Source information: A member of the RNA family "c-di-AMP riboswitch aptamer (ydaO/yuaA leader)" from Modestobacter italicus, 146 nucleotides long. Rfam links the family to the GO terms regulation of gene expression and cyclic-di-AMP binding.
[Rfam]
RNA sequence: CGCCGGAUGCCGCCGAAUCGCACCUGCGAGCCGGGGACCCACCGCACUGUGGGGUGAAUCCCGCCGCCGAGCUCCGCUCGGGGGUGGGUAGGGCUCUCCCCGCCCGAACCCGUCAGCUGACCUGGUAGGCGGCCAUGGGAGAACGG
Numbered sequence: 001c002g003c004c005g006g007a008u009g010c011c012g013c014c015g016a017a018u019c020g021c022a023c024c025u026g027c028g029a030g031c032c033g034g035g036g037a038c039c040c041a042c043c044g045c046a047c048u049g050u051g052g053g054g055u056g057a058a059u060c061c062c063g064c065c066g067c068c069g070a071g072c073u074c075c076g077c078u079c080g081g082g083g084g085u086g087g088g089u090a091g092g093g094c095u096c097u098c099c100c101c102g103c104c105c106g107a108a109c110c111c112g113u114c115a116g117c118u119g120a121c122c123u124g125g126u127a128g129g130c131g132g133c134c135a136u137g138g139g140a141g142a143a144c145g146g
Stems, first nucleotide, its partner, number of pairs: 011131004018029003030126006040051002052111003060088006091105004